A member of the RNA family "A. fumigatus sRNA Afu_254" from Aspergillus sydowii, 151 nucleotides long.
A search with the family's covariance model found it, with a score of 96 bits.

RNA sequence: UCUUCAAAUCCCAGUUUAUACAGCCACUUUCAAGGUUUUAAACCAAACACCACCAACCAACCUUCAAAAUGUCUCCCUGCUCUUGCAACUGCUGCUCCGGCAACUGCAACUCCUGCUCUUGCAGCUCUUGCACCGUGAGUAUUUCCUAGCC
Numbered sequence: 001u002c003u004u005c006a007a008a009u010c011c012c013a014g015u016u017u018a019u020a021c022a023g024c025c026a027c028u029u030u031c032a033a034g035g036u037u038u039u040a041a042a043c044c045a046a047a048c049a050c051c052a053c054c055a056a057c058c059a060a061c062c063u064u065c066a067a068a069a070u071g072u073c074u075c076c077c078u079g080c081u082c083u084u085g086c087a088a089c090u091g092c093u094g095c096u097c098c099g100g101c102a103a104c105u106g107c108a109a110c111u112c113c114u115g116c117u118c119u120u121g122c123a124g125c126u127c128u129u130g131c132a133c134c135g136u137g138a139g140u141a142u143u144u145c146c147u148a149g150c151c
Stems, first nucleotide, its partner, number of pairs: 078102004085095003106131003115122002

Source information: The literature on the family includes a 2008 paper in Nucleic Acids Res by Jochl et al., "Small ncRNA transcriptome analysis from Aspergillus fumigatus suggests a novel mechanism for regulation of protein synthesis". Rfam classes the family as a small RNA.